[Rfam]
Alphaproteobacterial ar14: a 121-nucleotide sequence from Mycoplana azooxidifex. A search with the family's covariance model found it, with a score of 104 bits. The literature on the family includes a 2012 paper in RNA Biol by del Val et al., "A survey of sRNA families in alpha-proteobacteria". Rfam links the family to the GO term biological process involved in symbiotic interaction. By type it is a small RNA. The family has 118 seed sequences and 784 matches in Rfam 15.1.
RNA sequence: AUCAAUCGGGUGCGGCACUCCUCCUCCCAGCCAGCCCCGAUGCGAUUGGCAGCACUCCUCCUCCCAAGUUGCCAAUCUGGAUCGACGCCCGCCGGACCUCCUCCCCCGGCGGGCGUUGUAU
Numbered sequence: 001a002u003c004a005a006u007c008g009g010g011u012g013c014g015g016c017a018c019u020c021c022u023c024c025u026c027c028c029a030g031c032c033a034g035c036c037c038c039g040a041u042g043c044g045a046u047u048g049g050c051a052g053c054a055c056u057c058c059u060c061c062u063c064c065c066a067a068g069u070u071g072c073c074a075a076u077c078u079g080g081a082u083c084g085a086c087g088c089c090c091g092c093c094g095g096a097c098c099u100c101c102u103c104c105c106c107c108g109g110c111g112g113g114c115g116u117u118g119u120a121u
Base pairs, nucleotide, nucleotide: 007039008038009037010036014032015031016030044077045076046075047074048073049072050071051070052069053068085116086115087114088113089112090111091110092109093108094107095106